RNA sequence: CGCUGCCUUCAGCUUCUUUACAGUGCUGCCUUGUUGCUUAUGGAUCAAGCAGCAUUGUACAGGGCUAUGAAGGCAUUG
Numbered sequence: 001c002g003c004u005g006c007c008u009u010c011a012g013c014u015u016c017u018u019u020a021c022a023g024u025g026c027u028g029c030c031u032u033g034u035u036g037c038u039u040a041u042g043g044a045u046c047a048a049g050c051a052g053c054a055u056u057g058u059a060c061a062g063g064g065c066u067a068u069g070a071a072g073g074c075a076u077u078g
Stems, first nucleotide, its partner, number of pairs: 014064004019059010030049004
A member of the RNA family "mir-103/107 microRNA precursor family" from Anolis carolinensis, 78 nucleotides long.
From the family's description: This family consists of the mammalian microRNA (miRNA) precursors mir-103 and mir107.
The base pairs follow the family's consensus structure, which was predicted with RNAalifold.
For this family Rfam cites "miRNPs: a novel class of ribonucleoproteins containing numerous microRNAs" (Mourelatos et al., Genes Dev, 2002).
Rfam's curators put it in the seed alignment.